[Rfam]
RNA sequence: UCGAGAACCAUUUCAAUCAAGUAGUAUAGUGAUUGAAAUGGUUCUCGCAAACGU
Numbered sequence: 001u002c003g004a005g006a007a008c009c010a011u012u013u014c015a016a017u018c019a020a021g022u023a024g025u026a027u028a029g030u031g032a033u034u035g036a037a038a039u040g041g042u043u044c045u046c047g048c049a050a051a052c053g054u
Base pairs, nucleotide, nucleotide: 002047003046004045005044006043007042008041009040010039011038012037013036014035015034016033017032018031019030
Dot-bracket structure: .((((((((((((((((((..........)))))))))))))))))).......

Plastid-ccsA-ndhD-1 3UTR RNA: a 54-nucleotide sequence from Rheum palmatum. Plastid-ccsA-ndhD-1 is a non-coding RNA (ncRNA) recognised in plastids. It was found in the three prime untranslated region (3UTR) of ccsA and ndhD genes, its 3UTR location suggests a role in transcript maturation. For this family Rfam cites "Retrograde signaling in plants: A critical review focusing on the GUN pathway and beyond" (Richter et al., Plant Commun, 2023). Rfam 15.1 lists 1,322 matches to the family in 557 species.